[Rfam]
RNA sequence: GAGUCUAACAUCUGAGACUGCCAAGGCAGAACCCUUAUGCGUAAUGAAGUAAAUGUAAAUGGGAUCUGUCAAAAGUGCACCAUUGACCAGUCCAGAUAUUAUAUGAUGGUACUGAGUAAGAGCAAGUAUGUUGGACCGAAGAUGGUGAACUAUGCCUGAAUAGGUGAAGCCAGAGGAAACUCUGGUGGAAGCUCGUAGCGGUUCUGACGUGCAAAUCGAUCGUCAAAUUUGGGUAUAGGGCGAAAGACUAAUCGAACCAUCUAGUAGCUGGUU
Numbered sequence: 001g002a003g004u005c006u007a008a009c010a011u012c013u014g015a016g017a018c019u020g021c022c023a024a025g026g027c028a029g030a031a032c033c034c035u036u037a038u039g040c041g042u043a044a045u046g047a048a049g050u051a052a053a054u055g056u057a058a059a060u061g062g063g064a065u066c067u068g069u070c071a072a073a074a075g076u077g078c079a080c081c082a083u084u085g086a087c088c089a090g091u092c093c094a095g096a097u098a099u100u101a102u103a104u105g106a107u108g109g110u111a112c113u114g115a116g117u118a119a120g121a122g123c124a125a126g127u128a129u130g131u132u133g134g135a136c137c138g139a140a141g142a143u144g145g146u147g148a149a150c151u152a153u154g155c156c157u158g159a160a161u162a163g164g165u166g167a168a169g170c171c172a173g174a175g176g177a178a179a180c181u182c183u184g185g186u187g188g189a190a191g192c193u194c195g196u197a198g199c200g201g202u203u204c205u206g207a208c209g210u211g212c213a214a215a216u217c218g219a220u221c222g223u224c225a226a227a228u229u230u231g232g233g234u235a236u237a238g239g240g241c242g243a244a245a246g247a248c249u250a251a252u253c254g255a256a257c258c259a260u261c262u263a264g265u266a267g268c269u270g271g272u273u
Base pairs, nucleotide, nucleotide: 005134006133007132008131009130010129011128013126016123020040021039023036024035025034026033044050045049058084059083060082061081062080066075067074086117087116088114089113090112092109093108136271137270138268141261142260143259144258145257146256150238151237152236153235154234155233156232157231158230159229160228161226163194164192165191169186170185171184172183173182174181175180198223199222200221201220203219204218206217207216239249240248

A member of the RNA family "Eukaryotic large subunit ribosomal RNA" from Puccinia triticina, 273 nucleotides of a longer RNA. Rfam's curators put it in the seed alignment. The family's consensus secondary structure is taken from published work. Lineage of the source: Eukaryota > Pucciniomycotina > Pucciniaceae > Puccinia > Puccinia triticina.